[Rfam]
RNA sequence: GUUGCUUCACAACUGGAAGGAUGACAUGUUGAUAACAGUUUGGUCAUCCUGUAGAGGGGAGCAUAGAUGAACGGAAACACCAGCCAGCAUUAAACAGCACUGCGCUCUAUCAAACCGUGUUGUGUUACCUGUCUUCUGGCACAUUU
Numbered sequence: 001g002u003u004g005c006u007u008c009a010c011a012a013c014u015g016g017a018a019g020g021a022u023g024a025c026a027u028g029u030u031g032a033u034a035a036c037a038g039u040u041u042g043g044u045c046a047u048c049c050u051g052u053a054g055a056g057g058g059g060a061g062c063a064u065a066g067a068u069g070a071a072c073g074g075a076a077a078c079a080c081c082a083g084c085c086a087g088c089a090u091u092a093a094a095c096a097g098c099a100c101u102g103c104g105c106u107c108u109a110u111c112a113a114a115c116c117g118u119g120u121u122g123u124g125u126u127a128c129c130u131g132u133c134u135u136c137u138g139g140c141a142c143a144u145u146u
Stems, first nucleotide, its partner, number of pairs: 003063006016052001018050008083140005089134001096126003100122001102120003

Annotation: A member of the RNA family "small nucleolar RNA snoR137" from Aegilops tauschii, 146 nucleotides long. By type it is an H/ACA-box small nucleolar RNA. The organism belongs to Aegilops tauschii, within Eukaryota. Pairs were carried over by alignment from the consensus structure, which was predicted with RNAalifold.